[Rfam]
RNA sequence: UAACGUCGUGCGGGAGAGUUCCACCGGUGUACGCCGGGUAGGAACGCCGAAGGAGCAACACUCCCCGGAACCUCUCAGGCGCAAGGACCGCGCGAUCAAG
Dot-bracket structure: .....((((((((.....((((..................)))).(((((..(((...(.......)....))))).))).......)))))))).....
Numbered sequence: 001u002a003a004c005g006u007c008g009u010g011c012g013g014g015a016g017a018g019u020u021c022c023a024c025c026g027g028u029g030u031a032c033g034c035c036g037g038g039u040a041g042g043a044a045c046g047c048c049g050a051a052g053g054a055g056c057a058a059c060a061c062u063c064c065c066c067g068g069a070a071c072c073u074c075u076c077a078g079g080c081g082c083a084a085g086g087a088c089c090g091c092g093c094g095a096u097c098a099a100g
Stems, first nucleotide, its partner, number of pairs: 006095008019044004046080003049076002053074003059067001
The record is a 100-nucleotide RNA from Epidermidibacterium keratini, which matches "Glycine riboswitch aptamer" in Rfam. Taxonomically the source falls in Epidermidibacterium (Bacteria, Bacillati, Actinomycetes, Sporichthyaceae). Pairs were carried over by alignment from the consensus structure. A search with the family's covariance model found it, with a score of 63 bits.